[Rfam]
RNA sequence: ACACGAGAAGGGAGGUGGUCCAAAGUUGAAGAACUACAGGACUCGUGAGGUGGCUGUCCGUUAACGGACUCCACGCGUAGGACUUUCCCGCAGGGACUUCUUCCGACCACCUGUCGGCUCGUCUCCUGUGUCGCGUGUCAGCCUGUUGACGAAUACCAGGCAGUCACCGGACCCCCGAUGCUUCCGAGACCCAGUCCUGCUCGGAACUCGAACGACUGACGGCGUUCGAGAAGAGCAUCGGGGGUCUCUUCAU
Number, nucleotide and partner (000 for none) at each position: 001a000002c000003a000004c000005g000006a000007g000008a000009a000010g000011g000012g000013a000014g058015g057016u056017g055018g054019u053020c000021c000022a000023a000024a000025g000026u000027u000028g000029a000030a000031g000032a000033a000034c000035u000036a000037c000038a000039g000040g000041a000042c000043u000044c000045g000046u000047g000048a000049g000050g000051u000052g000053g019054c018055u017056g016057u015058c014059c151060g150061u149062u148063a147064a146065c145066g000067g143068a000069c141070u140071c000072c137073a136074c135075g134076c133077g132078u000079a000080g000081g000082a000083c000084u000085u000086u000087c000088c000089c000090g000091c000092a000093g000094g000095g000096a000097c000098u000099u000100c000101u000102u000103c000104c000105g000106a000107c000108c000109a000110c000111c000112u000113g000114u000115c000116g000117g000118c000119u000120c000121g000122u000123c000124u000125c000126c000127u000128g000129u000130g000131u000132c077133g076134c075135g074136u073137g072138u000139c000140a070141g069142c000143c067144u000145g065146u064147u063148g062149a061150c060151g059152a000153a000154u000155a000156c000157c000158a000159g000160g000161c000162a000163g000164u000165c000166a000167c000168c000169g247170g246171a245172c244173c243174c242175c241176c240177g239178a238179u237180g236181c235182u000183u205184c204185c203186g202187a201188g200189a000190c000191c000192c000193a000194g000195u000196c000197c000198u000199g000200c188201u187202c186203g185204g184205a183206a000207c000208u000209c000210g000211a000212a000213c000214g000215a000216c000217u000218g000219a000220c000221g000222g000223c000224g000225u000226u000227c000228g000229a000230g000231a000232a000233g000234a000235g181236c180237a179238u178239c177240g176241g175242g174243g173244g172245u171246c170247u169248c000249u000250u000251c000252a000253u000
Actinobacteria sRNA Ms_IGR-5: a 253-nucleotide sequence from Amycolatopsis sp. CA-230715. NCBI's taxonomy places the organism under Bacteria, Actinomycetota, Actinomycetes, Pseudonocardiales, Amycolatopsis. A search with the family's covariance model found it, with a score of 100 bits. By type it is a small RNA.